[Rfam]
RNA sequence: CGGUUGGCGAAAACACAGACACAGUGUUAUAUAUACUCCGUCACUAGGUCUGCACCUGUGCUACCCCAGA
Numbered sequence: 001c002g003g004u005u006g007g008c009g010a011a012a013a014c015a016c017a018g019a020c021a022c023a024g025u026g027u028u029a030u031a032u033a034u035a036c037u038c039c040g041u042c043a044c045u046a047g048g049u050c051u052g053c054a055c056c057u058g059u060g061c062u063a064c065c066c067c068a069g070a
Stems, first nucleotide, its partner, number of pairs: 002066002005063005016052005025043002
Trypanosomatid snoRNA TB6Cs1H1: a 70-nucleotide sequence from Angomonas deanei. On this family, see Liang et al., RNA 2005: "A genome-wide analysis of C/D and H/ACA-like small nucleolar RNAs in Trypanosoma brucei reveals a trypanosome-specific pattern of rRNA modification". The family's RNA type in Rfam is H/ACA-box small nucleolar RNA. It scores 60 bits against the family's covariance model. The source organism's lineage runs through Eukaryota, Discoba, Euglenozoa, Strigomonadinae and Angomonas.